[Rfam]
RNA sequence: GUAAACUACCCACCACCAAUUGCUAAGAGCAAUAUGGUGGGGGCUUUAAAGCAAGCGAGUUUACCCGACUAAGUACCUUGAGUACUACGAUUUUUAGGUCAUCUCACCUACGAAUACGCAGCCAGUUUGUAGCUCUGAGGUUAGCAGUUAAACAGAAUCAUUGGGUUUGAAUCAGUGCUGUUAGCGUAAAAAGCCUUUAAAUCAUUGUCCAGGCUAACUUUAC
Numbered sequence: 001g002u003a004a005a006c007u008a009c010c011c012a013c014c015a016c017c018a019a020u021u022g023c024u025a026a027g028a029g030c031a032a033u034a035u036g037g038u039g040g041g042g043g044c045u046u047u048a049a050a051g052c053a054a055g056c057g058a059g060u061u062u063a064c065c066c067g068a069c070u071a072a073g074u075a076c077c078u079u080g081a082g083u084a085c086u087a088c089g090a091u092u093u094u095u096a097g098g099u100c101a102u103c104u105c106a107c108c109u110a111c112g113a114a115u116a117c118g119c120a121g122c123c124a125g126u127u128u129g130u131a132g133c134u135c136u137g138a139g140g141u142u143a144g145c146a147g148u149u150a151a152a153c154a155g156a157a158u159c160a161u162u163g164g165g166u167u168u169g170a171a172u173c174a175g176u177g178c179u180g181u182u183a184g185c186g187u188a189a190a191a192a193g194c195c196u197u198u199a200a201a202u203c204a205u206u207g208u209c210c211a212g213g214c215u216a217a218c219u220u221u222a223c
Stems, first nucleotide, its partner, number of pairs: 001064007010043002013040002016037002044055003067209003071205001072086005089203005096196004104138002108132008116219001120215004140185009152176002155173002158170003
This 223-nucleotide RNA sequence from Nostoc sphaeroides belongs to the Rfam family "HNH endonuclease-associated RNA and ORF (HEARO) RNA".
The organism belongs to Nostoc sphaeroides, within Bacteria.
Rfam classes the family as a non-coding RNA gene.
Pairs were carried over by alignment from the consensus structure, which is taken from published work.